This 231-nucleotide part of an RNA from Thermogutta terrifontis belongs to the Rfam family "Bacterial large subunit ribosomal RNA".

[Rfam]
RNA sequence: GAGUUACUGUCGGCGGCUUGGUUAAGGCCUUCCGGGCCGAAGCCGUAGGGAAACCGAGUCUGAAUAGGGCGUUUUGUCGCCGGCAGUAGACGCGAAACUGCGUGACCUACCCAUGGGCAGGGUGAAGCGCGGGUUACACCGCGUGGAGGCCCGAACCCACUUGGGUUGAAAACCGAGGGGAUGACCUGUGGGGAGGAGUGAAAGUCUAAUCAAACGCAGAGAUAGCUCGUU
Numbered sequence: 001g002a003g004u005u006a007c008u009g010u011c012g013g014c015g016g017c018u019u020g021g022u023u024a025a026g027g028c029c030u031u032c033c034g035g036g037c038c039g040a041a042g043c044c045g046u047a048g049g050g051a052a053a054c055c056g057a058g059u060c061u062g063a064a065u066a067g068g069g070c071g072u073u074u075u076g077u078c079g080c081c082g083g084c085a086g087u088a089g090a091c092g093c094g095a096a097a098c099u100g101c102g103u104g105a106c107c108u109a110c111c112c113a114u115g116g117g118c119a120g121g122g123u124g125a126a127g128c129g130c131g132g133g134u135u136a137c138a139c140c141g142c143g144u145g146g147a148g149g150c151c152c153g154a155a156c157c158c159a160c161u162u163g164g165g166u167u168g169a170a171a172a173c174c175g176a177g178g179g180g181a182u183g184a185c186c187u188g189u190g191g192g193g194a195g196g197a198g199u200g201a202a203a204g205u206c207u208a209a210u211c212a213a214a215c216g217c218a219g220a221g222a223u224a225g226c227u228c229g230u231u
Stems, first nucleotide, its partner, number of pairs: 005088013020044004026038003048055002058070004091229002094226001098219006107195002110192008118183001120152004127144006156180003160177005197207002